Notes
SAM-I/IV (S-adenosyl methionine) riboswitch aptamer: a 106-nucleotide sequence from Limnohabitans sp. JirII-31. The literature on the family includes a 2008 paper in RNA by Weinberg et al., "The aptamer core of SAM-IV riboswitches mimics the ligand-binding site of SAM-I riboswitches". The match comes from Rfam's covariance-model search (66 bits). Gene Ontology terms of the family: regulation of gene expression and S-adenosylmethionine metabolic process.

[Rfam]
RNA sequence: GAGCAACAUUUGGAGAUGGGUCGACGCCCACGCCAACCUGCCUACUCGGGCAAGGUGGUUAGCGAAAGCUGAUGUGGCUUCUGAGGAAGCAACCAAACGGGUAAUU
Numbered sequence: 001g002a003g004c005a006a007c008a009u010u011u012g013g014a015g016a017u018g019g020g021u022c023g024a025c026g027c028c029c030a031c032g033c034c035a036a037c038c039u040g041c042c043u044a045c046u047c048g049g050g051c052a053a054g055g056u057g058g059u060u061a062g063c064g065a066a067a068g069c070u071g072a073u074g075u076g077g078c079u080u081c082u083g084a085g086g087a088a089g090c091a092a093c094c095a096a097a098c099g100g101g102u103a104a105u106u
Base pairs, nucleotide, nucleotide: 006075007074008073009072010071015031017030018029019028020027021026032059033058034057037055038054039053040051041050042049044102045101046100047099048098077090078089079088080087